RNA sequence: GUGACAAGGGCAUCUGGUGGAUGCCUUGGCACUGGAAGGCGAUGAAGGACGUGGCACCCUGCGAAAAGUUCCGGGGAGAUGGGAGCAAUCUUUGAUCCGGAAAUGUCCGAAUGGGGAAACCCACCGCAUCUGUGGUAUCCACACCUGAAUUCAUAGGGUGUGGAAGCGAACCCGGCGAACUGAAACAUCUAAGUAGCCGGAGGAAAGGAAAUCAACCGAGACUCCGCAAGUAGUGGCGAGCGAACGCGGACCAGCCCAGUGGCUGCAGUGAAACAACCGGAAACGUCUGGAAAGGCGUGCCAGAGCGGGUGACAGCCCCGUACGGGUAAAAAACACUGUAGUCCUCGAGUAAGGCGGGACACGUGAAAUCCUGUCUGAACAUGGGGGGACCACCCUCCAAGGCUAAGUACUCUCCAGUGACCGAUAGUGAACCAGUACCGUGAGGGAAAGGUGAAAAGCACCCCAACGAGGGGAGUGAAACAGUUCCUGAAACCGGAUGCCUACAAG
Numbered sequence: 001g002u003g004a005c006a007a008g009g010g011c012a013u014c015u016g017g018u019g020g021a022u023g024c025c026u027u028g029g030c031a032c033u034g035g036a037a038g039g040c041g042a043u044g045a046a047g048g049a050c051g052u053g054g055c056a057c058c059c060u061g062c063g064a065a066a067a068g069u070u071c072c073g074g075g076g077a078g079a080u081g082g083g084a085g086c087a088a089u090c091u092u093u094g095a096u097c098c099g100g101a102a103a104u105g106u107c108c109g110a111a112u113g114g115g116g117a118a119a120c121c122c123a124c125c126g127c128a129u130c131u132g133u134g135g136u137a138u139c140c141a142c143a144c145c146u147g148a149a150u151u152c153a154u155a156g157g158g159u160g161u162g163g164a165a166g167c168g169a170a171c172c173c174g175g176c177g178a179a180c181u182g183a184a185a186c187a188u189c190u191a192a193g194u195a196g197c198c199g200g201a202g203g204a205a206a207g208g209a210a211a212u213c214a215a216c217c218g219a220g221a222c223u224c225c226g227c228a229a230g231u232a233g234u235g236g237c238g239a240g241c242g243a244a245c246g247c248g249g250a251c252c253a254g255c256c257c258a259g260u261g262g263c264u265g266c267a268g269u270g271a272a273a274c275a276a277c278c279g280g281a282a283a284c285g286u287c288u289g290g291a292a293a294g295g296c297g298u299g300c301c302a303g304a305g306c307g308g309g310u311g312a313c314a315g316c317c318c319c320g321u322a323c324g325g326g327u328a329a330a331a332a333a334c335a336c337u338g339u340a341g342u343c344c345u346c347g348a349g350u351a352a353g354g355c356g357g358g359a360c361a362c363g364u365g366a367a368a369u370c371c372u373g374u375c376u377g378a379a380c381a382u383g384g385g386g387g388g389a390c391c392a393c394c395c396u397c398c399a400a401g402g403c404u405a406a407g408u409a410c411u412c413u414c415c416a417g418u419g420a421c422c423g424a425u426a427g428u429g430a431a432c433c434a435g436u437a438c439c440g441u442g443a444g445g446g447a448a449a450g451g452u453g454a455a456a457a458g459c460a461c462c463c464c465a466a467c468g469a470g471g472g473g474a475g476u477g478a479a480a481c482a483g484u485u486c487c488u489g490a491a492a493c494c495g496g497a498u499g500c501c502u503a504c505a506a507g
Stems, first nucleotide, its partner, number of pairs: 008502010023487001024451002028422002030419007037411002039167002047108003050063003069102007078090003113122003123136005138164009171202001172200005182189002212219002222407001223250005233241002253404004261345002264340005277325003283298005301305001307319003352376008383398005438445002461473004
Source information
Shown here is a 507-nucleotide part of an RNA from Haematospirillum jordaniae, a member of the family "Bacterial large subunit ribosomal RNA". The source organism's lineage runs through Bacteria, Pseudomonadati, Alphaproteobacteria, Novispirillaceae and Haematospirillum. Rfam links the family to the GO terms structural constituent of ribosome and ribosome. It scores 2739 bits against the family's covariance model.